[Rfam]
RNA sequence: UUUAAAACUCCAGCUAUGGGUAACAUUCUGAGUAGUGUUUGGGCUGGAUUGCAGAAAAGAUUUUGACUUCUCUUUUAUGGACAAACUUUGAAUUUGAAAAUGGAAGAUUUGGGUCUUCCAUUCUUCAUGAACGUUGUAGGCUUAUUUCUUAGCUUUCUAUC
Numbered sequence: 001u002u003u004a005a006a007a008c009u010c011c012a013g014c015u016a017u018g019g020g021u022a023a024c025a026u027u028c029u030g031a032g033u034a035g036u037g038u039u040u041g042g043g044c045u046g047g048a049u050u051g052c053a054g055a056a057a058a059g060a061u062u063u064u065g066a067c068u069u070c071u072c073u074u075u076u077a078u079g080g081a082c083a084a085a086c087u088u089u090g091a092a093u094u095u096g097a098a099a100a101u102g103g104a105a106g107a108u109u110u111g112g113g114u115c116u117u118c119c120a121u122u123c124u125u126c127a128u129g130a131a132c133g134u135u136g137u138a139g140g141c142u143u144a145u146u147u148c149u150u151a152g153c154u155u156u157c158u159a160u161c
Stems, first nucleotide, its partner, number of pairs: 003159002006156002008152002012149002016145005021139001023137003028133001035128003046124003050120002053117002056114001059110002062107003067103002073097002077093002
RNA: MIR2912 microRNA precursor family